[Rfam]
RNA sequence: CUUGAGGGAGCCGAGCCACAGCGGCUCGUCGCCGGAACGUUCCUGCCCGUACGUGGCCAGCAGUGCCUGCGCCUC
Numbered sequence: 001c002u003u004g005a006g007g008g009a010g011c012c013g014a015g016c017c018a019c020a021g022c023g024g025c026u027c028g029u030c031g032c033c034g035g036a037a038c039g040u041u042c043c044u045g046c047c048c049g050u051a052c053g054u055g056g057c058c059a060g061c062a063g064u065g066c067c068u069g070c071g072c073c074u075c
Base pairs, nucleotide, nucleotide: 014026015025016024017023033069038065039064043060044059045058047056048055049054

This 75-nucleotide RNA sequence from Streptomyces sp. Ag109_G2-6 belongs to the Rfam family "ASpks TB sRNA". The family's RNA type in Rfam is antisense RNA. The base pairs follow the family's consensus structure, which is taken from published work.